[Rfam]
Nucleotides: 090
Stems, first nucleotide, its partner, number of pairs: 002085001004083004012074003017070004025064002
Number, partner (000 for none) and nucleotide at each position: 001000a002085g003000a004083u005082u006081a007080g008000c009000u010000u011000a012074g013073c014072c015000u016000a017070g018069u019068g020067g021000u022000u023000c024000c025064u026063u027000a028000u029000c030000u031000u032000g033000c034000c035000u036000g037000u038000a039000g040000a041000g042000u043000a044000c045000u046000u047000g048000c049000a050000g051000u052000u053000c054000c055000a056000u057000u058000g059000u060000u061000c062000a063026a064025g065000c066000c067020c068019c069018a070017u071000u072014g073013g074012u075000g076000c077000u078000g079000u080007c081006u082005g083004a084000c085002c086000c087000u088000u089000u090000a

Shown here is a 90-nucleotide RNA from Pogona vitticeps, a member of the family "Vault RNA". NCBI's taxonomy places the organism under Eukaryota, Bilateria, Teleostomi, Sarcopterygii, Pogona. It is annotated as a non-coding RNA gene. The match comes from Rfam's covariance-model search (38 bits).